RNA sequence: ACAAUGAUACUUCUGCCCAGCCACAGUCCGAGCGUUAAAAGCGUCGCAGGCAAUGGGGGCAGCUUGGUCGGACGACGGAGAGGUGAAAUUCCUAUGG
Number, nucleotide and partner (000 for none) at each position: 001a000002c000003a000004a000005u000006g000007a000008u000009a000010c000011u000012u094013c062014u061015g060016c059017c058018c057019a000020g000021c000022c000023a000024c000025a000026g000027u000028c000029c000030g000031a000032g000033c000034g000035u000036u000037a000038a000039a000040a000041g000042c000043g000044u000045c000046g000047c000048a000049g000050g000051c000052a000053a000054u000055g000056g000057g018058g017059g016060c015061a014062g013063c080064u079065u078066g000067g076068u075069c074070g000071g000072a000073c000074g069075a068076c067077g000078g065079a064080g063081a093082g092083g091084u000085g000086a000087a000088a000089u000090u000091c083092c082093u081094a012095u000096g000097g000